A member of the RNA family "Streptomyces RNA 1601" from Streptomyces phyllanthi, 208 nucleotides long. A reference for the family is Vockenhuber et al. (2011), "Deep sequencing-based identification of small non-coding RNAs in Streptomyces coelicolor", RNA Biol. Identified by deep sequencing of transcriptome at the end of exponential growth phase. The organism belongs to Streptomyces, within Bacteria. It scores 176 bits against the family's covariance model.
RNA sequence: GACGACCGGCUGGACAUACAUGUGCCCGGCCCGCAAGUGGAGGCUCCGAACUCCCACCCGACCGUCCCCCGGACGGCGGGUCACCGGUCAGGCGGCCACCACCGUUCCGUACGGACGGUGGAGUCGCCCGAAGUGCGCCCCGCGGUUCACCGCGGCGGUGUUCCGGCAGUCCUGGAGCCCCGCCUGUGUCCCGUCCGGGGCAUUUUUC
Numbered sequence: 001g002a003c004g005a006c007c008g009g010c011u012g013g014a015c016a017u018a019c020a021u022g023u024g025c026c027c028g029g030c031c032c033g034c035a036a037g038u039g040g041a042g043g044c045u046c047c048g049a050a051c052u053c054c055c056a057c058c059c060g061a062c063c064g065u066c067c068c069c070c071g072g073a074c075g076g077c078g079g080g081u082c083a084c085c086g087g088u089c090a091g092g093c094g095g096c097c098a099c100c101a102c103c104g105u106u107c108c109g110u111a112c113g114g115a116c117g118g119u120g121g122a123g124u125c126g127c128c129c130g131a132a133g134u135g136c137g138c139c140c141c142g143c144g145g146u147u148c149a150c151c152g153c154g155g156c157g158g159u160g161u162u163c164c165g166g167c168a169g170u171c172c173u174g175g176a177g178c179c180c181c182g183c184c185u186g187u188g189u190c191c192c193g194u195c196c197g198g199g200g201c202a203u204u205u206u207u208c
Stems, first nucleotide, its partner, number of pairs: 004089006012027002028082005034060001037057004041052002062076006091128003095125001099121008137201006143193003151188003154184005160178005